Rfam assigns this 69-nucleotide sequence from Candidatus Brocadiaceae bacterium S225 to the family "int-alpA RNA".
From the family's description: Acidobacteria (1 example), Planctomycetes (1 example), Proteobacteria.
RNA sequence: UUAAGGGAUAGGGAAUCUAGACCCGAAAAGCUGUCCUCUACAGCCUGCCCUUUAAUUUAUCUAUAGAGG
Numbered sequence: 001u002u003a004a005g006g007g008a009u010a011g012g013g014a015a016u017c018u019a020g021a022c023c024c025g026a027a028a029a030g031c032u033g034u035c036c037u038c039u040a041c042a043g044c045c046u047g048c049c050c051u052u053u054a055a056u057u058u059a060u061c062u063a064u065a066g067a068g069g
Stems, first nucleotide, its partner, number of pairs: 001054001003052005011024003030044004035069006
Source information: The match comes from Rfam's covariance-model search (40 bits).